[Rfam]
RNA sequence: UUGCUGUGAUGGCGUUUGGCAGAAGUGCGCUGUUUGUGUGCUUUCUUGUCUUUACUACAGACGAAGUGUCCGGGUCGAUCCCUGCGGUCGGGUUUCUGGGGAUUCGAGUAAUCAAUCCUACCAGAUCCUAGCAAUGAGUGGUGGUAUCACUCGAGGGAAGAAAUUCAGCACAGUUCAUCACCCGUGGUGGAGGCGAAACGGAUGGCAUCUUCUCUGGUCUUGGUAGGGAUUUGAAAGCAUCUGGUGUUACGACUCCGAUUCUUUCUUU
Numbered sequence: 001u002u003g004c005u006g007u008g009a010u011g012g013c014g015u016u017u018g019g020c021a022g023a024a025g026u027g028c029g030c031u032g033u034u035u036g037u038g039u040g041c042u043u044u045c046u047u048g049u050c051u052u053u054a055c056u057a058c059a060g061a062c063g064a065a066g067u068g069u070c071c072g073g074g075u076c077g078a079u080c081c082c083u084g085c086g087g088u089c090g091g092g093u094u095u096c097u098g099g100g101g102a103u104u105c106g107a108g109u110a111a112u113c114a115a116u117c118c119u120a121c122c123a124g125a126u127c128c129u130a131g132c133a134a135u136g137a138g139u140g141g142u143g144g145u146a147u148c149a150c151u152c153g154a155g156g157g158a159a160g161a162a163a164u165u166c167a168g169c170a171c172a173g174u175u176c177a178u179c180a181c182c183c184g185u186g187g188u189g190g191a192g193g194c195g196a197a198a199c200g201g202a203u204g205g206c207a208u209c210u211u212c213u214c215u216g217g218u219c220u221u222g223g224u225a226g227g228g229a230u231u232u233g234a235a236a237g238c239a240u241c242u243g244g245u246g247u248u249a250c251g252a253c254u255c256c257g258a259u260u261c262u263u264u265c266u267u268u
Stems, first nucleotide, its partner, number of pairs: 002014003018265002021262004029255001033251001038241001039239007048230009060214002063211002066208004070201003075196003079191003082187006089131001090128006097120002100118005106113002132136001138181006149174003157166003
RNA: Fungal signal recognition particle RNA